RNA sequence: AGUCGUUCGUCUGUGUGAGCUCUACUACUUAGUAUUGUUUUUGGAGGAUCGUGAGAUUAACACAGUGCCGGCAGUUUCUUUGAGCGUUGAUUUUCAAUGUCUAAGAAACCAGGAGGGCCCGGAAGAAGCCGGGCCAUCAAUAUGCUGAAAC
Numbered sequence: 001a002g003u004c005g006u007u008c009g010u011c012u013g014u015g016u017g018a019g020c021u022c023u024a025c026u027a028c029u030u031a032g033u034a035u036u037g038u039u040u041u042u043g044g045a046g047g048a049u050c051g052u053g054a055g056a057u058u059a060a061c062a063c064a065g066u067g068c069c070g071g072c073a074g075u076u077u078c079u080u081u082g083a084g085c086g087u088u089g090a091u092u093u094u095c096a097a098u099g100u101c102u103a104a105g106a107a108a109c110c111a112g113g114a115g116g117g118c119c120c121g122g123a124a125g126a127a128g129c130c131g132g133g134c135c136a137u138c139a140a141u142a143u144g145c146u147g148a149a150a151c
Stems, first nucleotide, its partner, number of pairs: 005072003009068001011065006020046002023043002030037002047058004074109007082101001087097004113138002116135007
A member of the RNA family "Flavivirus 5' UTR" from Orthoflavivirus usutuense, 151 nucleotides long. The sequence is in the family's curated seed alignment. From the family's description: The 5' UTR of flaviviruses are highly structured, has a length of approximately 100 nucleotides and harbors two conserved RNA secondary structures vital for the viral life cycle. During replication, a long-range RNA-RNA interaction between 5' UTR and 3' UTR of the genome is formed to initiate synthesis of new viral replicates and viral protein translation. In direct adjacency to the 5' UTR, already part of the coding region, lies the cHP structure, which is essential for the viral replication. The first structural element is termed 5'SLA and comprises three stems (S1, S2, S3) folded as Y-shaped-like stem structure, and a side structure domain (SSD). Its overall length is around 70 nucleotides. Viral replication is stopped by disruption of S1 and S2. Further, via RNA-protein interaction with NS5, SLA serves as a promoter for RNA synthesis during circularization of the viral genome. Despite the diversity of SSD, its stable structure is essential for infectivity. The second structural element is termed 5'SLB. At its top region of the stem loop lies the translation initiation codon. It further contains the 5'UAR (upstream AUG region), which is essential for the circularization of the genome. The 5'UAR interacts with the 3'UAR, which is located at the 3' UTR of the genome to form the long-range RNA-RNA interaction. At the start of the coding region lies the capsid-coding hairpin region (cHP), which is followed by the 5'CS (conserved sequence). The 5'CS forms an additional long-range RNA-RNA interaction with the 3' UTR (3'CS). The cHP further aids in the start codon recognition and thus in viral replication. Studies show that the function of cHP is sequence-independent but structure-dependent. The family's RNA type in Rfam is cis-regulatory element.